[Rfam]
RNA: c-di-GMP-I riboswitch aptamer
RNA sequence: AUAGCGAAAGGGCAAAGUCACCGAAAGAUGGCGACGCAAAACCGUGGAUCUAAAGCCAUUUAUGGCCAAGAUAGCCAGGUUACCGAA
Numbered sequence: 001a002u003a004g005c006g007a008a009a010g011g012g013c014a015a016a017g018u019c020a021c022c023g024a025a026a027g028a029u030g031g032c033g034a035c036g037c038a039a040a041a042c043c044g045u046g047g048a049u050c051u052a053a054a055g056c057c058a059u060u061u062a063u064g065g066c067c068a069a070g071a072u073a074g075c076c077a078g079g080u081u082a083c084c085g086a087a
Stems, first nucleotide, its partner, number of pairs: 012037002017032004022027001040081004045077003048072003055066004